[Rfam]
Rfam assigns this 173-nucleotide sequence from Naumovozyma castellii to the family "U2 spliceosomal RNA". The organism belongs to Naumovozyma, within Eukaryota. Pairs were carried over by alignment from the consensus structure, which is taken from published work. It is one of the family's seed sequences. It is annotated as a spliceosomal small nuclear RNA.
RNA sequence: AUCUCUUUGCCUUUUGGCUUAGAUCAAGUGUAGUAUCUGUUCUUUUCAGUGUAACAACUGAAAUGACCUCAAUGAGGCUCAUUACCUUUAUUAUUUGUUACAAUACUCAUUUUUUGGAAGCACUUAAAUGGGCGGGAAGAAACUGAGAGGAUCCUUCCUAUUGUCUAUUCAAU
Numbered sequence: 001a002u003c004u005c006u007u008u009g010c011c012u013u014u015u016g017g018c019u020u021a022g023a024u025c026a027a028g029u030g031u032a033g034u035a036u037c038u039g040u041u042c043u044u045u046u047c048a049g050u051g052u053a054a055c056a057a058c059u060g061a062a063a064u065g066a067c068c069u070c071a072a073u074g075a076g077g078c079u080c081a082u083u084a085c086c087u088u089u090a091u092u093a094u095u096u097g098u099u100a101c102a103a104u105a106c107u108c109a110u111u112u113u114u115u116g117g118a119a120g121c122a123c124u125u126a127a128a129u130g131g132g133c134g135g136g137a138a139g140a141a142a143c144u145g146a147g148a149g150g151a152u153c154c155u156u157c158c159u160a161u162u163g164u165c166u167a168u169u170c171a172a173u
Base pairs, nucleotide, nucleotide: 004023005022006021009018010017011016044063045062046061047060048059049058065080066079067077068076069075070074103124110119111118112117130166131165132164133163134162135161137159139157140156141155